[Rfam]
Nucleotides: 073
Base pairs, nucleotide, nucleotide: 001072002071003070004069
Number, partner (000 for none) and nucleotide at each position: 001072c002071u003070a004069c005000g006000g007000g008000g009000a010000u011000g012000a013000u014000u015000u016000c017000a018000c019000u020000a021000a022000c023000u024000g025000a026000a027000c028000u029000c030000u031000c032000u033000c034000u035000u036000u037000c038000u039000g040000a041000u042000g043000g044000c045000u046000c047000a048000g049000u050000g051000g052000a053000g054000a055000a056000a057000a058000c059000a060000c061000a062000u063000u064000u065000c066000u067000g068000a069004g070003u071002a072001g073000c

The family of this 73-nucleotide sequence from Callithrix jacchus is "Small nucleolar RNA SNORD26". Its family is annotated with RNA processing and nucleolus in the Gene Ontology. NCBI's taxonomy places the organism under Eukaryota, Chordata, Haplorrhini, Callithrix, Callithrix. The family's consensus secondary structure was predicted with PFOLD. The literature on the family includes a 1996 paper in Nature by Tycowski et al., "A mammalian gene with introns instead of exons generating stable RNA products". Rfam classes the family as a C/D-box small nucleolar RNA.